[Rfam]
RNA sequence: CUUGCCCCCUUGGGGAUCAAAGUAGAAGCGUUCAUGUUGCAAUCCCUGUCAAGUAAUACUUGGUAUUAUCUGCAAAUUGUAAA
Numbered sequence: 001c002u003u004g005c006c007c008c009c010u011u012g013g014g015g016a017u018c019a020a021a022g023u024a025g026a027a028g029c030g031u032u033c034a035u036g037u038u039g040c041a042a043u044c045c046c047u048g049u050c051a052a053g054u055a056a057u058a059c060u061u062g063g064u065a066u067u068a069u070c071u072g073c074a075a076a077u078u079g080u081a082a083a
Base pairs, nucleotide, nucleotide: 013046014045015044016043017042023081024080026078027077028040029039030038050072051071053069054068055067056066057065058064059063

Rfam assigns this 83-nucleotide RNA sequence from Conger conger to the family "Mammalian CPEB3 ribozyme".
Rfam 15.1 lists 5,706 matches to the family in 197 species.
The match comes from Rfam's covariance-model search (41 bits).